[Rfam]
RNA sequence: GCCGGACCGCGCUUCCGGUACAUCGCCUCCCCGCCCGCGCAGGAUCCCUGCGGGCACCCUCCGUCCUCCGGCGAUGUAUCCCGUGACUGGGCGAGCAGACACGGCGCGCGGGCCGAUUUUCCGCCCCGGACGUCCCCGUCCGGGGCUUUUUGU
Number, nucleotide and partner (000 for none) at each position: 001g000002c000003c115004g114005g113006a000007c111008c110009g109010c108011g107012c106013u000014u000015c000016c000017g080018g079019u078020a077021c076022a075023u074024c073025g072026c071027c070028u000029c000030c000031c000032c000033g055034c054035c053036c052037g000038c000039g051040c050041a049042g048043g047044a000045u000046c000047c043048c042049u041050g040051c039052g036053g035054g034055c033056a064057c063058c000059c000060u000061c000062c000063g057064u056065c000066c000067u000068c000069c000070g027071g026072c025073g024074a023075u022076g021077u020078a019079u018080c017081c104082c103083g102084u101085g100086a000087c098088u097089g096090g000091g000092c000093g000094a000095g000096c089097a088098g087099a000100c085101a084102c083103g082104g081105c000106g012107c011108g010109c009110g008111g007112g000113c005114c004115g003116a000117u000118u000119u000120u000121c000122c000123g146124c145125c144126c143127c142128g141129g140130a139131c138132g137133u000134c000135c000136c000137c132138g131139u130140c129141c128142g127143g126144g125145g124146c123147u000148u000149u000150u000151u000152g000153u000
This 153-nucleotide RNA sequence from Burkholderia cenocepacia belongs to the Rfam family "Burkholderia sRNA 37". Gene Ontology term of the family: bacterial biofilm matrix. Taxonomically the source falls in Burkholderia cenocepacia (Bacteria, Pseudomonadati, Pseudomonadota, Burkholderiaceae). On this family, see Sass et al., Sci Rep 2017: "Identification of small RNAs abundant in Burkholderia cenocepacia biofilms reveal putative regulators with a potential role in carbon and iron metabolism". Pairs were carried over by alignment from the consensus structure, which was predicted with RNAfold.